About this RNA:
This 156-nucleotide RNA from Rahnella aquatilis belongs to the Rfam family "STAXI RNA". Rfam 15.1 lists 130 matches to the family in 68 species. The organism belongs to Rahnella aquatilis, within Bacteria. It scores 107 bits against the family's covariance model.
[Rfam]
RNA sequence: CGUUGCGUGCCGCAACUGCCAAAACCCGUGUGGCCUGAGACGGGUGCCUUCGGGCGGCCACUGCCAAUGUUCCUGUGAUUUGAGAGAAACGCCUUCGGGUGAUCACAUGCCAAUACCGUUAUGACCUGAGAGACGGUGCCUUCGGGCGGUCACUGA
Numbered sequence: 001c002g003u004u005g006c007g008u009g010c011c012g013c014a015a016c017u018g019c020c021a022a023a024a025c026c027c028g029u030g031u032g033g034c035c036u037g038a039g040a041c042g043g044g045u046g047c048c049u050u051c052g053g054g055c056g057g058c059c060a061c062u063g064c065c066a067a068u069g070u071u072c073c074u075g076u077g078a079u080u081u082g083a084g085a086g087a088a089a090c091g092c093c094u095u096c097g098g099g100u101g102a103u104c105a106c107a108u109g110c111c112a113a114u115a116c117c118g119u120u121a122u123g124a125c126c127u128g129a130g131a132g133a134c135g136g137u138g139c140c141u142u143c144g145g146g147c148g149g150u151c152a153c154u155g156a
Base pairs, nucleotide, nucleotide: 002016003015004014005013006012007011024045025044026043027042028041030061031060032059033058034057035056046055047054048053069090070089071088073086075106076105077104078103079102080101091100092099093098115137116136117135118134119133122152123151124150125149126148138147139146140145